[Rfam]
The record is a 94-nucleotide RNA from Anopheles sinensis, which matches "mir-210 microRNA precursor family" in Rfam.
RNA sequence: ACGAAGUCCACUGCAGCUGCUGACCACUGCACAAGAUUAGAAUAUAACUCUUGUGCGUGUGACAACGGCUAUCGUGGGUAUUCCAAGCCAUCGG
Numbered sequence: 001a002c003g004a005a006g007u008c009c010a011c012u013g014c015a016g017c018u019g020c021u022g023a024c025c026a027c028u029g030c031a032c033a034a035g036a037u038u039a040g041a042a043u044a045u046a047a048c049u050c051u052u053g054u055g056c057g058u059g060u061g062a063c064a065a066c067g068g069c070u071a072u073c074g075u076g077g078g079u080a081u082u083c084c085a086a087g088c089c090a091u092c093g094g
Stems, first nucleotide, its partner, number of pairs: 006079006015070005021064002024061001025059002028057006035050002

Background:
The source organism's lineage runs through Eukaryota, Arthropoda, Mandibulata, Culicoidea and Myzorhynchus.